Shown here is a 74-nucleotide sequence from Neotoma lepida, a member of the family "mir-129 microRNA precursor family".
RNA sequence: UUGGAUCUUUUUGCGGUCUGGGCUUGCUGUUCUUUCCACGGUAGUCAGGAAGCCCUUACCCCAAAAAGUAUCUA
Numbered sequence: 001u002u003g004g005a006u007c008u009u010u011u012u013g014c015g016g017u018c019u020g021g022g023c024u025u026g027c028u029g030u031u032c033u034u035u036c037c038a039c040g041g042u043a044g045u046c047a048g049g050a051a052g053c054c055c056u057u058a059c060c061c062c063a064a065a066a067a068g069u070a071u072c073u074a
Stems, first nucleotide, its partner, number of pairs: 007068007015060003020055004025050001027048002
Dot-bracket structure: ......(((((((.(((..((((.(.((..................)).).))))..))).)))))))......
Rfam links the family to the GO terms synapse, gene silencing by miRNA and RISC complex. Taxonomically the source falls in Neotoma (Eukaryota, Bilateria, Gnathostomata, Rodentia).